[Rfam]
Small nucleolar RNA SNORA46: a 133-nucleotide RNA sequence from Castor canadensis.
The family's RNA type in Rfam is H/ACA-box small nucleolar RNA.
About the family: ACA46 is a member of the H/ACA class of snoRNA that guide the sites of modification of uridines to pseudouridines.
RNA sequence: AGCACUAUAUUUAAACCUAUGGUGGGCUUUUCCCCAUUCUUGGUUACGCUUUAGUGCAAAAGAAUUCCUGGCUCUUUCUGUUGCACAGCUGAUUUGCCAUUCUGCUGUUGCUUUAUGGAGUUAAGGAACAUAA
Numbered sequence: 001a002g003c004a005c006u007a008u009a010u011u012u013a014a015a016c017c018u019a020u021g022g023u024g025g026g027c028u029u030u031u032c033c034c035c036a037u038u039c040u041u042g043g044u045u046a047c048g049c050u051u052u053a054g055u056g057c058a059a060a061a062g063a064a065u066u067c068c069u070g071g072c073u074c075u076u077u078c079u080g081u082u083g084c085a086c087a088g089c090u091g092a093u094u095u096g097c098c099a100u101u102c103u104g105c106u107g108u109u110g111c112u113u114u115a116u117g118g119a120g121u122u123a124a125g126g127a128a129c130a131u132a133a
Base pairs, nucleotide, nucleotide: 002057003056004055005054006053007052009050014045015044016043017042021039022038023036024035025034026033065128066127067126068125069124070122071121072120073119074118075117079115080114083111084110085109086107087106088105089104091102092101
Description:
The base pairs follow the family's consensus structure, which was predicted with RNAfold.